Rfam assigns this 299-nucleotide sequence from Romanomermis culicivorax to the family "Metazoan signal recognition particle RNA". For this family Rfam cites "SRPDB: Signal Recognition Particle Database" (Rosenblad et al., Nucleic Acids Res, 2003). Rfam's curators write: The signal recognition particle (SRP) is a universally conserved ribonucleoprotein. A search with the family's covariance model found it, with a score of 234 bits. The family's RNA type in Rfam is non-coding RNA gene. NCBI's taxonomy places the organism under Eukaryota, Metazoa, Ecdysozoa, Nematoda, Romanomermis.

RNA sequence: GCUGGGUGUCGCGGCUGGCACCUGUAAUCCAGCUACUUGGAGGCCCGUCUCGGUGGAUGGCUUGAGCGUGGGAGCCCUGCCUGUGAUCGCCCAUGUUGACCGAGCGUCCGCGCCAAGCACGGCGUCAAUACAGCGGACGGUGAGGAGUCACCGGCCCCUGGGUUGCUCAAAGAGGGGUGAUACCGGCCCAGGGCGGAAACGCAGCAGGCAAAAGCCCCCGCGUUGUGACAGUGGCGGGAUAGCGCUUGCGAAUAGGUGACGCAUCGCAGCCCUCGCAAUACAGUCAGACUCGAGACUUU
Numbered sequence: 001g002c003u004g005g006g007u008g009u010c011g012c013g014g015c016u017g018g019c020a021c022c023u024g025u026a027a028u029c030c031a032g033c034u035a036c037u038u039g040g041a042g043g044c045c046c047g048u049c050u051c052g053g054u055g056g057a058u059g060g061c062u063u064g065a066g067c068g069u070g071g072g073a074g075c076c077c078u079g080c081c082u083g084u085g086a087u088c089g090c091c092c093a094u095g096u097u098g099a100c101c102g103a104g105c106g107u108c109c110g111c112g113c114c115a116a117g118c119a120c121g122g123c124g125u126c127a128a129u130a131c132a133g134c135g136g137a138c139g140g141u142g143a144g145g146a147g148u149c150a151c152c153g154g155c156c157c158c159u160g161g162g163u164u165g166c167u168c169a170a171a172g173a174g175g176g177g178u179g180a181u182a183c184c185g186g187c188c189c190a191g192g193g194c195g196g197a198a199a200c201g202c203a204g205c206a207g208g209c210a211a212a213a214g215c216c217c218c219c220g221c222g223u224u225g226u227g228a229c230a231g232u233g234g235c236g237g238g239a240u241a242g243c244g245c246u247u248g249c250g251a252a253u254a255g256g257u258g259a260c261g262c263a264u265c266g267c268a269g270c271c272c273u274c275g276c277a278a279u280a281c282a283g284u285c286a287g288a289c290u291c292g293a294g295a296c297u298u299u
Stems, first nucleotide, its partner, number of pairs: 001044003004023008028041003047296007058286005066276003070272003077269003081266001083264003087259005093253002096250001101248007108238002111236005117229001118227008126165004131160003135156002138153006166172002174218005186209003193202003